[Rfam]
RNA: TPP riboswitch aptamer (THI element)
RNA sequence: AUCAUCUUGUCGGAGUGCCUAGUCGGUUUAAUAAUACCUACAGGCUGAGACCGUUAACUCGGGUCCGCGGAACCUGAUCAGGCUAAUACCUGGGAAGGGAACAAGAGUAACCGACCU
Numbered sequence: 001a002u003c004a005u006c007u008u009g010u011c012g013g014a015g016u017g018c019c020u021a022g023u024c025g026g027u028u029u030a031a032u033a034a035u036a037c038c039u040a041c042a043g044g045c046u047g048a049g050a051c052c053g054u055u056a057a058c059u060c061g062g063g064u065c066c067g068c069g070g071a072a073c074c075u076g077a078u079c080a081g082g083c084u085a086a087u088a089c090c091u092g093g094g095a096a097g098g099g100a101a102c103a104a105g106a107g108u109a110a111c112c113g114a115c116c117u
Base pairs, nucleotide, nucleotide: 006105007104008103009102010101011067012066013065014064016062017045018044019043020042052061053060073098074097075096079092080091081090082089